[Rfam]
RNA sequence: CUCUGGAGAUCACCGAGACAAUCGGGGAGCCGAUGGGGCGCGAUACGAGGACGUAUCCAAACUCUCAGGCCACAAGACAGAG
Numbered sequence: 001c002u003c004u005g006g007a008g009a010u011c012a013c014c015g016a017g018a019c020a021a022u023c024g025g026g027g028a029g030c031c032g033a034u035g036g037g038g039c040g041c042g043a044u045a046c047g048a049g050g051a052c053g054u055a056u057c058c059a060a061a062c063u064c065u066c067a068g069g070c071c072a073c074a075a076g077a078c079a080g081a082g
Stems, first nucleotide, its partner, number of pairs: 001082005011027001013025002029070003032066002036064003042057006

The family of this 82-nucleotide sequence from Sulfobacillus acidophilus is "Glycine riboswitch aptamer".
Rfam describes the family as follows. This family represents the bacterial glycine riboswitch.
Rfam links the family to the GO term glycine biosynthetic process.